A member of the RNA family "mir-290 microRNA precursor family" from Rattus norvegicus, 66 nucleotides long. The family's consensus secondary structure was predicted with RNAalifold. The sequence is in the family's curated seed alignment. Taxonomically the source falls in Rattus (Eukaryota, Teleostomi, Amniota, Euarchontoglires).
RNA sequence: GCGGUUCUCAAACUAUGGGGGCACUUUUUUUUUCUUUAAAAAGUGCCGCCAGGUUUUAGGGCCUGC
Numbered sequence: 001g002c003g004g005u006u007c008u009c010a011a012a013c014u015a016u017g018g019g020g021g022c023a024c025u026u027u028u029u030u031u032u033u034c035u036u037u038a039a040a041a042a043g044u045g046c047c048g049c050c051a052g053g054u055u056u057u058a059g060g061g062c063c064u065g066c
Base pairs, nucleotide, nucleotide: 004063006061007060008059010057011056012055016051017050018049020047021046022045023044024043025042026040027039028038